[Rfam]
Annotation: The record is a 79-nucleotide RNA from Vicugna pacos, which matches "mir-92 microRNA precursor family" in Rfam. The base pairs follow the family's consensus structure, which was predicted with PFOLD. On this family, see Houbaviy et al., Dev Cell 2003: "Embryonic stem cell-specific MicroRNAs". Lineage of the source: Eukaryota > Euteleostomi > Sarcopterygii > Theria > Vicugna. About the family: This family represents the microRNA precursor mir-92. Human miR-92 has two predicted hairpin precursor sequences: mir-92-1 on chromosome 13 and mir-92-2 on chromosome X. miR-92 has also been cloned from mouse embryonic stem cells.

RNA sequence: CUUUUGACACAGGUUGGGAUCGGUUGCAAAUGCUGUGUUCCUGUAUGGAGUUGAACUUGUCCCGGCCUGUUGAGUUUGG
Numbered sequence: 001c002u003u004u005u006g007a008c009a010c011a012g013g014u015u016g017g018g019a020u021c022g023g024u025u026g027c028a029a030a031u032g033c034u035g036u037g038u039u040c041c042u043g044u045a046u047g048g049a050g051u052u053g054a055a056c057u058u059g060u061c062c063c064g065g066c067c068u069g070u071u072g073a074g075u076u077u078g079g
Stems, first nucleotide, its partner, number of pairs: 005074001009070006016063005022057003027053003031050001033048003